RNA: Small nucleolar RNA SNORA14
Organism: Taeniopygia guttata
RNA sequence: CUGGAUGAAUCCUCCUGGAGGAAUCCUGGAUAAUUCCUCCAGGAUAAAUCCUCCUGGAUUAAUCCUGGAUAAUUCCUCCAGGAUAAAUCCUCCUGGGUGAAUUCCUCCUGGAUUAAUCCUCCUGGAUAAUU
Numbered sequence: 001c002u003g004g005a006u007g008a009a010u011c012c013u014c015c016u017g018g019a020g021g022a023a024u025c026c027u028g029g030a031u032a033a034u035u036c037c038u039c040c041a042g043g044a045u046a047a048a049u050c051c052u053c054c055u056g057g058a059u060u061a062a063u064c065c066u067g068g069a070u071a072a073u074u075c076c077u078c079c080a081g082g083a084u085a086a087a088u089c090c091u092c093c094u095g096g097g098u099g100a101a102u103u104c105c106u107c108c109u110g111g112a113u114u115a116a117u118c119c120u121c122c123u124g125g126a127u128a129a130u131u
Base pairs, nucleotide, nucleotide: 003054004050005049006048013044014043015042016041017040018039020037021036022035058131060129063126064125065124067122068121069120079110080109081108082107083106087102088101092097